Shown here is an 84-nucleotide RNA from Bombyx mori, a member of the family "mir-2807 microRNA precursor family".

RNA sequence: UAAACUCAUAGUUGUAUGGAGUUGGUACGUUUGCUUACGUUUGCCGCUAGGGGCGCUGUUCCAACUGCAUACAAAGUUGAGUUA
Numbered sequence: 001u002a003a004a005c006u007c008a009u010a011g012u013u014g015u016a017u018g019g020a021g022u023u024g025g026u027a028c029g030u031u032u033g034c035u036u037a038c039g040u041u042u043g044c045c046g047c048u049a050g051g052g053g054c055g056c057u058g059u060u061c062c063a064a065c066u067g068c069a070u071a072c073a074a075a076g077u078u079g080a081g082u083u084a
Base pairs, nucleotide, nucleotide: 008078012074013073014072015071016070018068020066021065022064023063024062025061027059028058029057034052035051036050039047040046

A search with the family's covariance model found it, with a score of 73 bits.